[Rfam]
RNA: Small nucleolar RNA SNORD53/SNORD92
Nucleotides: 084
Base pairs, nucleotide, nucleotide: 001084002083003082004081
Number, partner (000 for none) and nucleotide at each position: 001084u002083u003082g004081c005000u006000g007000u008000g009000a010000u011000g012000a013000u014000a015000c016000c017000c018000u019000c020000a021000a022000c023000u024000g025000u026000g027000g028000u029000u030000u031000c032000a033000a034000c035000u036000u037000g038000c039000u040000g041000a042000g043000a044000g045000u046000u047000g048000a049000a050000u051000g052000a053000g054000g055000a056000c057000a058000u059000u060000a061000a062000a063000u064000u065000c066000c067000u068000u069000g070000g071000c072000u073000g074000u075000g076000u077000c078000u079000g080000a081004g082003c083002a084001g